[Rfam]
RNA sequence: UUAAUACCUCGUUAGGUGAGGCUCCUAUACAGAUACAGGCUGCUGCCCGGAAACAUCGAGAGAUGGUAACGGGUGAACAGGCAUUACCGAAUCAAGGUUUUGCCUAAUGCAGCUGGAGUUUUCUCCAAAGCUGUAUAGUGCCAAAGCUCAACGAAGGAAAUUGGAU
Numbered sequence: 001u002u003a004a005u006a007c008c009u010c011g012u013u014a015g016g017u018g019a020g021g022c023u024c025c026u027a028u029a030c031a032g033a034u035a036c037a038g039g040c041u042g043c044u045g046c047c048c049g050g051a052a053a054c055a056u057c058g059a060g061a062g063a064u065g066g067u068a069a070c071g072g073g074u075g076a077a078c079a080g081g082c083a084u085u086a087c088c089g090a091a092u093c094a095a096g097g098u099u100u101u102g103c104c105u106a107a108u109g110c111a112g113c114u115g116g117a118g119u120u121u122u123c124u125c126c127a128a129a130g131c132u133g134u135a136u137a138g139u140g141c142c143a144a145a146g147c148u149c150a151a152c153g154a155a156g157g158a159a160a161u162u163g164g165a166u
Stems, first nucleotide, its partner, number of pairs: 006161001009158002011152002013095001015148003020142003025138008039113005045074005054065004080104004086098003115126003
Shown here is a 166-nucleotide RNA sequence from Caldanaerobacter subterraneus, a member of the family "M-box riboswitch aptamer (ykoK leader)".
The sequence is in the family's curated seed alignment.
The family has 159 seed sequences and 1,095 matches in Rfam 15.1.
Rfam links the family to the GO terms regulation of gene expression and response to magnesium ion.